Rfam assigns this 60-nucleotide RNA from Panagrellus redivivus to the family "mir-7910 microRNA precursor family". Rfam's curators put it in the seed alignment. Taxonomically the source falls in Panagrellus (Eukaryota, Tylenchina, Panagrolaimomorpha, Panagrolaimidae).

RNA sequence: UUUGAAAUGGCGCAGUCCCUAUUCAACGGCGGUUUGAUUAGGCCUUGCUUCAUUUCAAAU
Dot-bracket structure: (((((((((...(((..((((.((((.......)))).))))..)))...))))))))).